[Rfam]
RNA sequence: AAUUCUGUUGUAAGAACAAAGAGAAGCAGAUAUUCUAUACCGAUCAAUACCAAUACGCAAUGGGG
Number, nucleotide and partner (000 for none) at each position: 001a000002a000003u021004u020005c000006u018007g017008u016009u015010g000011u000012a000013a000014g000015a009016a008017c007018a006019a000020a004021g003022a000023g000024a000025a000026g000027c000028a000029g000030a000031u000032a000033u000034u000035c000036u000037a000038u000039a000040c063041c062042g000043a000044u000045c000046a000047a000048u055049a054050c000051c000052a000053a000054u049055a048056c000057g000058c000059a000060a000061u000062g041063g040064g000065g000
Shown here is a 65-nucleotide RNA sequence from Musa balbisiana, a member of the family "Plastid-clpP 5UTR RNA". Plastid clpP is a non-coding RNA (ncRNA) recognised in plastids. It was found in the prime untranslated region (5UTR) of a protease complex subunit (clpP) in plastids, suggesting a posible cis-regulatory function. A reference for the family is Richter et al. (2023), "Retrograde signaling in plants: A critical review focusing on the GUN pathway and beyond", Plant Commun. Pairs were carried over by alignment from the consensus structure, which was predicted with LocARNA. Rfam 15.1 lists 2,105 matches to the family in 526 species.